[Rfam]
RNA sequence: UGAUGUCUUCAGGGCAGGGUGAGAUUCCCGACCGGCGGUAAUUUUUGGAUUGGAAUUUUUUUCUCCAUGUCAAAUCAAGUCCGCGAGCGCAAGCUGAUGUGGUGAGAUUCCACAACCGACAGUAUAGUCUGGAUGGGAGAAGACGAGA
Numbered sequence: 001u002g003a004u005g006u007c008u009u010c011a012g013g014g015c016a017g018g019g020u021g022a023g024a025u026u027c028c029c030g031a032c033c034g035g036c037g038g039u040a041a042u043u044u045u046u047g048g049a050u051u052g053g054a055a056u057u058u059u060u061u062u063c064u065c066c067a068u069g070u071c072a073a074a075u076c077a078a079g080u081c082c083g084c085g086a087g088c089g090c091a092a093g094c095u096g097a098u099g100u101g102g103u104g105a106g107a108u109u110c111c112a113c114a115a116c117c118g119a120c121a122g123u124a125u126a127g128u129c130u131g132g133a134u135g136g137g138a139g140a141a142g143a144c145g146a147g148a
Base pairs, nucleotide, nucleotide: 004145005144006143007142008141009140010139017029018028019027031128032127033118034117035084036083037082038081079116080115087094088093098114099113100112101111102110120131121130122129
RNA: FMN riboswitch aptamer (RFN element)
Organism: Streptococcus sanguinis